RNA sequence: UGAGAACUACUCCUUUUAUGGGUGGUUUGGCUAAGCAUGAAGAAAUUCCGUGCAAAGAAUUUUUCUUCAUGCUUUUAUUAUAUCA
Numbered sequence: 001u002g003a004g005a006a007c008u009a010c011u012c013c014u015u016u017u018a019u020g021g022g023u024g025g026u027u028u029g030g031c032u033a034a035g036c037a038u039g040a041a042g043a044a045a046u047u048c049c050g051u052g053c054a055a056a057g058a059a060u061u062u063u064u065c066u067u068c069a070u071g072c073u074u075u076u077a078u079u080a081u082a083u084c085a
Base pairs, nucleotide, nucleotide: 003028004027005026007025008024009023010022011021012020033074034073035072036071037070038069039068040067041066042065043064044063045062
Rfam assigns this 85-nucleotide RNA sequence from Lactococcus lactis to the family "ctRNA". Rolling circle replication plasmids contain a number of mechanisms to maintain a low copy number. One of these methods is to transcribe a small RNA called ctRNA (for counter-transcribed RNA) than is transcribed on the opposite strand to RepB the replication initiation protein. ctRNA binds to the mRNA of repB and causes translational inhibition. Taxonomically the source falls in Lactococcus (Bacteria, Bacillota, Bacilli, Lactobacillales). Its family is annotated with mRNA binding and plasmid copy number maintenance in the Gene Ontology. The family's consensus secondary structure was predicted with ILM.